[Rfam]
RNA sequence: AAAUACUACUAGGGGAGCCAUAUGGCUGAGAUGAAUAAGUUCAGACCCUUACAACCUGAUUUGGUUAGUACCAACGUAGGAAAGUAGUUAAAUUUAUAG
Numbered sequence: 001a002a003a004u005a006c007u008a009c010u011a012g013g014g015g016a017g018c019c020a021u022a023u024g025g026c027u028g029a030g031a032u033g034a035a036u037a038a039g040u041u042c043a044g045a046c047c048c049u050u051a052c053a054a055c056c057u058g059a060u061u062u063g064g065u066u067a068g069u070a071c072c073a074a075c076g077u078a079g080g081a082a083a084g085u086a087g088u089u090a091a092a093u094u095u096a097u098a099g
Base pairs, nucleotide, nucleotide: 006087007086008085009084010083011049012048013047014046017026018025019024033042034041035040055080056079057078058077061074062073063072064071
RNA: TPP riboswitch aptamer (THI element)